[Rfam]
RNA sequence: ACCUCCAUCUUACGAGGCAGCAUUGGAUAUCAUCCCUUUCUCUAAUACUGCCUGGUAAUGAUGAUGGU
Numbered sequence: 001a002c003c004u005c006c007a008u009c010u011u012a013c014g015a016g017g018c019a020g021c022a023u024u025g026g027a028u029a030u031c032a033u034c035c036c037u038u039u040c041u042c043u044a045a046u047a048c049u050g051c052c053u054g055g056u057a058a059u060g061a062u063g064a065u066g067g068u
Stems, first nucleotide, its partner, number of pairs: 002067002006063004010058004015053006022046006

Shown here is a 68-nucleotide RNA from Oryzias latipes, a member of the family "mir-8/mir-141/mir-200 microRNA precursor family". NCBI's taxonomy places the organism under Eukaryota, Craniata, Euteleostomi, Oryziinae, Oryzias. Its Rfam clan is "mir-8 microRNA precursor clan". Rfam links the family to the GO terms miRNA-mediated post-transcriptional gene silencing and RISC complex. Rfam 15.1 lists 2,669 matches to the family in 883 species.